Source information: The record is an 88-nucleotide RNA from Lactuca saligna, which matches "Small nucleolar RNA snoR109" in Rfam. The organism belongs to Lactuca, within Eukaryota. The base pairs follow the family's consensus structure, which was predicted with WAR. Rfam classes the family as an H/ACA-box small nucleolar RNA. A search with the family's covariance model found it, with a score of 77 bits. Gene Ontology terms of the family: nucleolus and RNA processing.
RNA sequence: CGGCUGUAGCUAAAUUGAUUCUGAAGUUUUACUGGCCGGUUGUCGUUAAUCUCAAUCGAUAAAUCUGCUUACCGAAUUUCAUAUAUUC
Numbered sequence: 001c002g003g004c005u006g007u008a009g010c011u012a013a014a015u016u017g018a019u020u021c022u023g024a025a026g027u028u029u030u031a032c033u034g035g036c037c038g039g040u041u042g043u044c045g046u047u048a049a050u051c052u053c054a055a056u057c058g059a060u061a062a063a064u065c066u067g068c069u070u071a072c073c074g075a076a077u078u079u080c081a082u083a084u085a086u087u088c
Stems, first nucleotide, its partner, number of pairs: 022081007034069003038065004042060004